Heliobacter pylori small RNA HPnc0580: a 105-nucleotide RNA from Helicobacter suis. The family has 7 seed sequences and 29 matches in Rfam 15.1. A reference for the family is Sharma et al. (2010), "The primary transcriptome of the major human pathogen Helicobacter pylori", Nature. The base pairs follow the family's consensus structure, which was predicted with RNAalifold.
RNA sequence: UACAUUUCGUAUCUACGGCAGGAAGUGCCGAAAGUUACGCCUUUGGAUAUAUGAUGUGUGAGACCUGUAGGGAAUGCGUUGGAGCUUUCAACUCUGUAAAAUCCC
Dot-bracket structure: ...............(((((.....)))))...(((.(((...((.(....)..)).))).)))................((((.......))))..........